[Rfam]
RNA sequence: AAUAAGAGUAAAUGAGUUCCCCGUAUAUGCUGCAGAAUUGGCUGUGGCGUUUCUACCAUGACACCGUAAAUGUCUACACUAUGUGGGAAAGCAAUUUUUCU
Numbered sequence: 001a002a003u004a005a006g007a008g009u010a011a012a013u014g015a016g017u018u019c020c021c022c023g024u025a026u027a028u029g030c031u032g033c034a035g036a037a038u039u040g041g042c043u044g045u046g047g048c049g050u051u052u053c054u055a056c057c058a059u060g061a062c063a064c065c066g067u068a069a070a071u072g073u074c075u076a077c078a079c080u081a082u083g084u085g086g087g088a089a090a091g092c093a094a095u096u097u098u099u100c101u
Stems, first nucleotide, its partner, number of pairs: 018087003022083004029048007060074004
Background:
The family of this 101-nucleotide RNA from Sporosarcina sp. P19 is "Purine riboswitch aptamer". Gene Ontology term of the family: purine nucleobase biosynthetic process. Lineage of the source: Bacteria > Bacillota > Bacilli > Caryophanales > Sporosarcina.